[Rfam]
RNA sequence: UUGGUUUAAACCAUUGUGGGUCUACAUUUUGAAAAUUAAACCUAAACAAAGUGGUGGGACAUACAUUGAAUUCAUUCAA
Numbered sequence: 001u002u003g004g005u006u007u008a009a010a011c012c013a014u015u016g017u018g019g020g021u022c023u024a025c026a027u028u029u030u031g032a033a034a035a036u037u038a039a040a041c042c043u044a045a046a047c048a049a050a051g052u053g054g055u056g057g058g059a060c061a062u063a064c065a066u067u068g069a070a071u072u073c074a075u076u077c078a079a
Stems, first nucleotide, its partner, number of pairs: 001079004006074001008072002012068002015065004022057003025053007
RNA: MIR5269 microRNA precursor family
Organism: Medicago truncatula